[Rfam]
Rfam assigns this 75-nucleotide RNA sequence from Alkalibaculum bacchi to the family "Glycine riboswitch aptamer". The base pairs follow the family's consensus structure. NCBI's taxonomy places the organism under Bacteria, Bacillota, Eubacteriales, Eubacteriaceae, Alkalibaculum. On this family, see Mandal et al., Science 2004: "A glycine-dependent riboswitch that uses cooperative binding to control gene expression".

RNA sequence: AUGAAGAUUAUGGGAGAGAGAUGUAUCAUCCGCCGAAGAAGUUACGCUUUCAGGCAAAAGGACCAUAAUUGGACG
Numbered sequence: 001a002u003g004a005a006g007a008u009u010a011u012g013g014g015a016g017a018g019a020g021a022u023g024u025a026u027c028a029u030c031c032g033c034c035g036a037a038g039a040a041g042u043u044a045c046g047c048u049u050u051c052a053g054g055c056a057a058a059a060g061g062a063c064c065a066u067a068a069u070u071g072g073a074c075g
Stems, first nucleotide, its partner, number of pairs: 006070008020030004032055003035051002039049003